Shown here is a 131-nucleotide RNA from Hemibagrus wyckioides, a member of the family "Small nucleolar RNA SNORA68". Rfam 15.1 lists 1,079 matches to the family in 643 species. Pairs were carried over by alignment from the consensus structure, which was predicted with PFOLD.
RNA sequence: UCUGCACACAAACCCAAAGAUCAUUGUGUCUGUGUAUAAUGCUCUUGCUAUGUGUGCGCAAAGAAACAGGGCCUUGUCGCCUUUCAUAAGCUCUUAUGUGCCAUUGGAAGUGAAUUCAAGGCUCAACAUCA
Numbered sequence: 001u002c003u004g005c006a007c008a009c010a011a012a013c014c015c016a017a018a019g020a021u022c023a024u025u026g027u028g029u030c031u032g033u034g035u036a037u038a039a040u041g042c043u044c045u046u047g048c049u050a051u052g053u054g055u056g057c058g059c060a061a062a063g064a065a066a067c068a069g070g071g072c073c074u075u076g077u078c079g080c081c082u083u084u085c086a087u088a089a090g091c092u093c094u095u096a097u098g099u100g101c102c103a104u105u106g107g108a109a110g111u112g113a114a115u116u117c118a119a120g121g122c123u124c125a126a127c128a129u130c131a
Stems, first nucleotide, its partner, number of pairs: 003058007019044002022041007069124007081110006090101002
The match comes from Rfam's covariance-model search (82 bits). The family's RNA type in Rfam is H/ACA-box small nucleolar RNA. On this family, see Ganot et al., Genes Dev 1997: "The family of box ACA small nucleolar RNAs is defined by an evolutionarily conserved secondary structure and ubiquitous sequence elements essential for RNA accumulation". The source organism's lineage runs through Eukaryota, Bilateria, Chordata, Gnathostomata and Hemibagrus. U68 is a member of the H/ACA class of small nucleolar RNAs (snoRNAs) which act as guides in the the modification of uridines to pseudouridines.